[Rfam]
RNA: mir-132 microRNA precursor family
Organism: Danio rerio
RNA sequence: CUCCAUGCUGACCGUGGCUUUAGAUUGUUACUGUAGCGUUGGCACGUGGUAACAGUCUACAGCCAUGGUCGCCAAGGGGCA
Numbered sequence: 001c002u003c004c005a006u007g008c009u010g011a012c013c014g015u016g017g018c019u020u021u022a023g024a025u026u027g028u029u030a031c032u033g034u035a036g037c038g039u040u041g042g043c044a045c046g047u048g049g050u051a052a053c054a055g056u057c058u059a060c061a062g063c064c065a066u067g068g069u070c071g072c073c074a075a076g077g078g079g080c081a
Stems, first nucleotide, its partner, number of pairs: 012068002015065004023057010